Shown here is a 148-nucleotide RNA sequence from Aegilops tauschii, a member of the family "Human acetyl-coA cholesterol acyltransferase mRNA".
It scores 37 bits against the family's covariance model.
Lineage of the source: Eukaryota > Embryophyta > commelinids > Poales > Aegilops tauschii.
The base pairs follow the family's consensus structure, which is taken from published work.

RNA sequence: GAAUAUAUAGGCCGAAGAAUUAGGUCAAGGGAGUCACGAGGGCCCCACAAGGUAGGGGGCGCGCCCUCCCCCCUUGUGGCCGCCUCGUGGCUCUUCCCACUUGAUCUCCAAGUCUCUGGGUUGUCUUUUGGUCCAAGAAAAAUCAUCG
Numbered sequence: 001g002a003a004u005a006u007a008u009a010g011g012c013c014g015a016a017g018a019a020u021u022a023g024g025u026c027a028a029g030g031g032a033g034u035c036a037c038g039a040g041g042g043c044c045c046c047a048c049a050a051g052g053u054a055g056g057g058g059g060c061g062c063g064c065c066c067u068c069c070c071c072c073c074u075u076g077u078g079g080c081c082g083c084c085u086c087g088u089g090g091c092u093c094u095u096c097c098c099a100c101u102u103g104a105u106c107u108c109c110a111a112g113u114c115u116c117u118g119g120g121u122u123g124u125c126u127u128u129u130g131g132u133c134c135a136a137g138a139a140a141a142a143u144c145a146u147c148g
Base pairs, nucleotide, nucleotide: 013017034090035089037087038086039085041084042083043082045079046078048076049075050074051073052072055071056070058069059068103133104132105131106130